[Rfam]
Notes: Shown here is a 384-nucleotide RNA from Staphylococcus epidermidis, a member of the family "Bacterial RNase P class B". Clan: RNaseP clan. On this family, see Frank and Pace, Annu Rev Biochem 1998: "Ribonuclease P: unity and diversity in a tRNA processing ribozyme". NCBI's taxonomy places the organism under Bacteria, Bacillota, Staphylococcaceae, Staphylococcus, Staphylococcus epidermidis. About the family: Ribonuclease P (RNase P) is a ubiquitous endoribonuclease, found in archaea, bacteria and eukarya as well as chloroplasts and mitochondria.
RNA sequence: UAUUUCGGGUAAUCGCUAUAGCAAUAUAGAGGAAAGUCCAUGCUCACACAAUCUGAGAUGAUUGUAGUGUUCGUGCUUGAUGAAACAAUAAAUCAAGGCAUUAAUUUGACGGCAAUGAAAUAACCUAAGUCAUUGGAUAUGGUUAGAAUAGUUUGAAAGUGCCACAGUGACGUAGCUUUUAUAGAAAUAUAAAAGGUGGAACGCGGUAAACCCCUCGAGUGAGCAAUCCAAAUUGGGUAGGAGCACUUGUUUAGCGGAAUUCAACGUAUAGACGAGACGAUUUUUACGCGAAAGUAAAAAUAUGUAGACAGAUGGUUACCACCGACGUACCAGUGUAACUAGUACACAUUAUGAGUACAACGGAACAGAACAUGGCUUACAGAA
Numbered sequence: 001u002a003u004u005u006c007g008g009g010u011a012a013u014c015g016c017u018a019u020a021g022c023a024a025u026a027u028a029g030a031g032g033a034a035a036g037u038c039c040a041u042g043c044u045c046a047c048a049c050a051a052u053c054u055g056a057g058a059u060g061a062u063u064g065u066a067g068u069g070u071u072c073g074u075g076c077u078u079g080a081u082g083a084a085a086c087a088a089u090a091a092a093u094c095a096a097g098g099c100a101u102u103a104a105u106u107u108g109a110c111g112g113c114a115a116u117g118a119a120a121u122a123a124c125c126u127a128a129g130u131c132a133u134u135g136g137a138u139a140u141g142g143u144u145a146g147a148a149u150a151g152u153u154u155g156a157a158a159g160u161g162c163c164a165c166a167g168u169g170a171c172g173u174a175g176c177u178u179u180u181a182u183a184g185a186a187a188u189a190u191a192a193a194a195g196g197u198g199g200a201a202c203g204c205g206g207u208a209a210a211c212c213c214c215u216c217g218a219g220u221g222a223g224c225a226a227u228c229c230a231a232a233u234u235g236g237g238u239a240g241g242a243g244c245a246c247u248u249g250u251u252u253a254g255c256g257g258a259a260u261u262c263a264a265c266g267u268a269u270a271g272a273c274g275a276g277a278c279g280a281u282u283u284u285u286a287c288g289c290g291a292a293a294g295u296a297a298a299a300a301u302a303u304g305u306a307g308a309c310a311g312a313u314g315g316u317u318a319c320c321a322c323c324g325a326c327g328u329a330c331c332a333g334u335g336u337a338a339c340u341a342g343u344a345c346a347c348a349u350u351a352u353g354a355g356u357a358c359a360a361c362g363g364a365a366c367a368g369a370a371c372a373u374g375g376c377u378u379a380c381a382g383a384a
Stems, first nucleotide, its partner, number of pairs: 004384003007380001008320007016029005034378003038375005043223005048065006071218003075214001076097006098110001099108002111213002114153003122144004129138003159211002161207003176195008227242003246276007277305003280301008322363003327358004